[Rfam]
RNA: Small nucleolar RNA SNORD2
RNA sequence: GAGUGAUAUGAUGGCAUACCAUCUUUCGGGACUGACUGAAAAAAAUGGAGAGUCCUUAAUUGUUUUACUGAUCACUC
Number, nucleotide and partner (000 for none) at each position: 001g077002a076003g075004u074005g073006a072007u000008a000009u000010g000011a000012u000013g000014g000015c000016a000017u000018a000019c000020c000021a000022u000023c000024u000025u000026u000027c000028g000029g000030g000031a000032c000033u000034g000035a000036c000037u000038g000039a000040a000041a000042a000043a000044a000045a000046u000047g000048g000049a000050g000051a000052g000053u000054c000055c000056u000057u000058a000059a000060u000061u000062g000063u000064u000065u000066u000067a000068c000069u000070g000071a000072u006073c005074a004075c003076u002077c001